Group II catalytic intron D1-D4-7: a 147-nucleotide RNA sequence from Paraburkholderia steynii.
The pairing is the family consensus, mapped onto this sequence.
The organism belongs to Paraburkholderia, within Bacteria.
On this family, see Bonen and Vogel, Trends Genet 2001: "The ins and outs of group II introns".
From the family's description: Group II introns are found in rRNA, tRNA and mRNA of organelles in fungi, plants and protists, and also in mRNA in bacteria.
Its family is annotated with Group II intron splicing in the Gene Ontology.
RNA sequence: CCUGUUGUUCAGCCAACAGUAGCCUAGGGAUAGUGCGGUGCGGGUAACGGCAUCGUGCGGAGCUUCCUGACAACGUAUCCCCCGCAAGGGUGCGGUCUCGUCGUGAGACGUACGCAGAUUCUGCCAGUCACAACGGUGGAUGAGGAG
Number, nucleotide and partner (000 for none) at each position: 001c000002c019003u018004g017005u016006u015007g014008u000009u000010c000011a000012g000013c000014c007015a006016a005017c004018a003019g002020u000021a000022g000023c000024c000025u000026a000027g068028g067029g066030a065031u000032a000033g058034u057035g056036c055037g054038g053039u052040g051041c050042g000043g048044g000045u000046a000047a000048c043049g000050g041051c040052a039053u038054c037055g036056u035057g034058c033059g000060g000061a000062g000063c000064u000065u030066c029067c028068u027069g000070a000071c000072a000073a000074c000075g000076u000077a000078u000079c000080c000081c090082c089083c088084g000085c000086a000087a000088g083089g082090g081091u116092g115093c114094g113095g000096u000097c000098u000099c000100g000101u108102c107103g000104u000105g000106a000107g102108a101109c000110g000111u000112a000113c094114g093115c092116a091117g000118a000119u000120u140121c139122u138123g137124c136125c135126a000127g000128u000129c000130a000131c000132a000133a000134c000135g125136g124137u123138g122139g121140a120141u000142g000143a000144g000145g000146a000147g000